[Rfam]
RNA sequence: GGCGCUUCAGGUGGCUCUUGGGCGAAAGUACUGACGACAGACCAGAAGCGGGAAGCCGUGAUGUUGAUAUGUGAUGCGACCGGUCUGUCGCAACGUCGUGCCUGCAGGCUCACAGGUU
Numbered sequence: 001g002g003c004g005c006u007u008c009a010g011g012u013g014g015c016u017c018u019u020g021g022g023c024g025a026a027a028g029u030a031c032u033g034a035c036g037a038c039a040g041a042c043c044a045g046a047a048g049c050g051g052g053a054a055g056c057c058g059u060g061a062u063g064u065u066g067a068u069a070u071g072u073g074a075u076g077c078g079a080c081c082g083g084u085c086u087g088u089c090g091c092a093a094c095g096u097c098g099u100g101c102c103u104g105c106a107g108g109c110u111c112a113c114a115g116g117u118u
Stems, first nucleotide, its partner, number of pairs: 035090009048059004063080004
Background
A member of the RNA family "Insertion sequence IS1222 ribosomal frameshifting element" from Pantoea agglomerans, 118 nucleotides long. About the family: This family represents the insertion sequence IS1222 ribosomal frameshifting element. Rfam's curators put it in the seed alignment. It is annotated as a frameshift element. The family's consensus secondary structure is taken from published work. Rfam 15.1 lists 89 matches to the family in 54 species. On this family, see Mejlhede et al., J Bacteriol 2004: "-1 frameshifting at a CGA AAG hexanucleotide site is required for transposition of insertion sequence IS1222".